[Rfam]
A member of the RNA family "Glycine riboswitch aptamer" from Bartonella henselae, 89 nucleotides long.
The sequence is in the family's curated seed alignment.
RNA sequence: CAGAUCUGGAAAGUCGGGAGGGGCCGCGCCGAAGGUGUAAGCGAAAACUUUUUUCGCGAGUCUCUCAGGUUUGUAACAGAGGGGUGCAG
Numbered sequence: 001c002a003g004a005u006c007u008g009g010a011a012a013g014u015c016g017g018g019a020g021g022g023g024c025c026g027c028g029c030c031g032a033a034g035g036u037g038u039a040a041g042c043g044a045a046a047a048c049u050u051u052u053u054u055c056g057c058g059a060g061u062c063u064c065u066c067a068g069g070u071u072u073g074u075a076a077c078a079g080a081g082g083g084g085u086g087c088a089g
Base pairs, nucleotide, nucleotide: 001084005080006079007078008077015026016025017024028070029069030068031066032065035064037062041057042056043055044054045053

The source organism's lineage runs through Bacteria, Pseudomonadati, Pseudomonadota, Alphaproteobacteria and Bartonella.